The family of this 52-nucleotide sequence from Pseudoalteromonas sp. BSi20652 is "L31-Gammaproteobacteria ribosomal protein leader".
[Rfam]
RNA sequence: CGUAUGGUACCAGACUACGGGUUUGGAGAGCGAUGCGGCCUUAACUAGAGGU
Numbered sequence: 001c002g003u004a005u006g007g008u009a010c011c012a013g014a015c016u017a018c019g020g021g022u023u024u025g026g027a028g029a030g031c032g033a034u035g036c037g038g039c040c041u042u043a044a045c046u047a048g049a050g051g052u
Base pairs, nucleotide, nucleotide: 001037002036003035004034005033007031008030010026011025012024013023014022015021
Overview:
By type it is a cis-regulatory leader. Rfam's curators put it in the seed alignment. NCBI's taxonomy places the organism under Bacteria, Gammaproteobacteria, Alteromonadales, Pseudoalteromonadaceae, Pseudoalteromonas. On this family, see Eckert and Weinberg, BMC Microbiol 2020: "Discovery of 20 novel ribosomal leader candidates in bacteria and archaea".